[Rfam]
RNA sequence: UGGGGUAAGGCAGACACCCCAUUAGACGGCAUGCGUCCAAGCUCUGC
Numbered sequence: 001u002g003g004g005g006u007a008a009g010g011c012a013g014a015c016a017c018c019c020c021a022u023u024a025g026a027c028g029g030c031a032u033g034c035g036u037c038c039a040a041g042c043u044c045u046g047c
Stems, first nucleotide, its partner, number of pairs: 001021006010047005025037004

The record is a 47-nucleotide sequence, which matches "chrB-b RNA" in Rfam. The base pairs follow the family's consensus structure, which is taken from published work. The family's RNA type in Rfam is cis-regulatory element. Rfam's curators put it in the seed alignment.